[Rfam]
RNA sequence: GGUUUAAAGGGUCCGUAGGCGGUUUGAUAAGUCAGUGGUGAAAGCCCAUCGCUCAACGAUGGAACGGCCAUUGAUACUGUUAGACUUGAAUUAUUAGGAAGUAACUAGAAUAUGUAGUGUAGCGGUGAAAUGCUUAGAGAUUACAUGGAAUACCAAUUGCGAAGGCAGGUUACUACUAAUGGAUUGACGCUGAUGGACGAAAGCGUGGGUAGCGAACAGGAUUAGAUACCCUGGUAGUCCACGCUGUAAACGAUGGAUACUAGCUGUUGGGGGCAACUUCAGUGGCUAAGCGAAAGUGAUAAGUAUCCCACCUGGGGAGUACGUUCGCAAGAAUGAAACUCAAAGGAAU
Numbered sequence: 001g002g003u004u005u006a007a008a009g010g011g012u013c014c015g016u017a018g019g020c021g022g023u024u025u026g027a028u029a030a031g032u033c034a035g036u037g038g039u040g041a042a043a044g045c046c047c048a049u050c051g052c053u054c055a056a057c058g059a060u061g062g063a064a065c066g067g068c069c070a071u072u073g074a075u076a077c078u079g080u081u082a083g084a085c086u087u088g089a090a091u092u093a094u095u096a097g098g099a100a101g102u103a104a105c106u107a108g109a110a111u112a113u114g115u116a117g118u119g120u121a122g123c124g125g126u127g128a129a130a131u132g133c134u135u136a137g138a139g140a141u142u143a144c145a146u147g148g149a150a151u152a153c154c155a156a157u158u159g160c161g162a163a164g165g166c167a168g169g170u171u172a173c174u175a176c177u178a179a180u181g182g183a184u185u186g187a188c189g190c191u192g193a194u195g196g197a198c199g200a201a202a203g204c205g206u207g208g209g210u211a212g213c214g215a216a217c218a219g220g221a222u223u224a225g226a227u228a229c230c231c232u233g234g235u236a237g238u239c240c241a242c243g244c245u246g247u248a249a250a251c252g253a254u255g256g257a258u259a260c261u262a263g264c265u266g267u268u269g270g271g272g273g274c275a276a277c278u279u280c281a282g283u284g285g286c287u288a289a290g291c292g293a294a295a296g297u298g299a300u301a302a303g304u305a306u307c308c309c310a311c312c313u314g315g316g317g318a319g320u321a322c323g324u325u326c327g328c329a330a331g332a333a334u335g336a337a338a339c340u341c342a343a344a345g346g347a348a349u
Stems, first nucleotide, its partner, number of pairs: 001312003009309001011198004016192001018191003022085007030078002032074008046062006089185003092181006100174007107151001111147008122133003159166002203244006212238002217233004255308006263286010290297002314341003323334004